[Rfam]
Annotation: The record is an 89-nucleotide RNA from Athene cunicularia, which matches "Small nucleolar RNA SNORD35" in Rfam. Rfam describes the family as follows. U35 is a C/D box snoRNA located in intron 6 of ribosomal protein L13A and intron 3 of ribosomal protein S11 in humans and at homologous positions in mouse and chicken ribosomal protein genes. U35 guides the methylation of 2'-O-ribose sites in 28S rRNA. A search with the family's covariance model found it, with a score of 71 bits. NCBI's taxonomy places the organism under Eukaryota, Opisthokonta, Teleostomi, Aves, Athene. On this family, see Nicoloso et al., J Mol Biol 1996: "Intron-encoded, antisense small nucleolar RNAs: the characterization of nine novel species points to their direct role as guides for the 2'-O-ribose methylation of rRNAs".

RNA sequence: GGCGCGUGAUGCCCUUCUCUCACGAUGGUCUGCUGAGCCCCACGCAGGGCCCUGAGGACAGCGCCACACGGCUCUGCUGAUGCCACGCG
Numbered sequence: 001g002g003c004g005c006g007u008g009a010u011g012c013c014c015u016u017c018u019c020u021c022a023c024g025a026u027g028g029u030c031u032g033c034u035g036a037g038c039c040c041c042a043c044g045c046a047g048g049g050c051c052c053u054g055a056g057g058a059c060a061g062c063g064c065c066a067c068a069c070g071g072c073u074c075u076g077c078u079g080a081u082g083c084c085a086c087g088c089g
Stems, first nucleotide, its partner, number of pairs: 001084004
Dot-bracket structure: ((((............................................................................)))).....